The record is a 149-nucleotide RNA from Tepiditoga spiralis, which matches "glmS glucosamine-6-phosphate activated ribozyme aptamer" in Rfam.
Taxonomically the source falls in Tepiditoga (Bacteria, Thermotogota, Petrotogales, Petrotogaceae).

RNA sequence: CAGUUAAAAAAAGCGCCAGACCCUUAAUGGGUGACGAGGAUCGAAACUUAUCGAAUAUUCGGCGGAUGGUUUCGGGGCAUUGGUAUAGUCCUUAAAGGAUUUACAAAACUCAAAGGAAACUUUGAGGACAAAAAAAUCCAAAUAUCAAA
Numbered sequence: 001c002a003g004u005u006a007a008a009a010a011a012a013g014c015g016c017c018a019g020a021c022c023c024u025u026a027a028u029g030g031g032u033g034a035c036g037a038g039g040a041u042c043g044a045a046a047c048u049u050a051u052c053g054a055a056u057a058u059u060c061g062g063c064g065g066a067u068g069g070u071u072u073c074g075g076g077g078c079a080u081u082g083g084u085a086u087a088g089u090c091c092u093u094a095a096a097g098g099a100u101u102u103a104c105a106a107a108a109c110u111c112a113a114a115g116g117a118a119a120c121u122u123u124g125a126g127g128a129c130a131a132a133a134a135a136a137u138c139c140a141a142a143u144a145u146c147a148a149a
Stems, first nucleotide, its partner, number of pairs: 020032004042074005051062004075091004097139006109126007
This entry contains a glucosamine-6-phosphate activated ribozyme that is found in the mRNA for GlmS. GlmS is an enzyme that uses fructose-6-phosphate and glutamine to generate glucosamine-6-phosphate.